[Rfam]
RNA sequence: UCCUCCUCGCGUUCACUACGUUGCCUUUAUGUGUUAUGUAGCAAUCAUAAGGCACGCGGUGAAUGCCAAGAGAG
Numbered sequence: 001u002c003c004u005c006c007u008c009g010c011g012u013u014c015a016c017u018a019c020g021u022u023g024c025c026u027u028u029a030u031g032u033g034u035u036a037u038g039u040a041g042c043a044a045u046c047a048u049a050a051g052g053c054a055c056g057c058g059g060u061g062a063a064u065g066c067c068a069a070g071a072g073a074g
Base pairs, nucleotide, nucleotide: 003072004071005070009066010065011064012063013062014061015060016059020057021056025052026051027050028049029048030047031046

A member of the RNA family "mir-124 microRNA precursor family" from Spodoptera littoralis, 74 nucleotides long. Gene Ontology terms of the family: miRNA-mediated post-transcriptional gene silencing and RISC complex.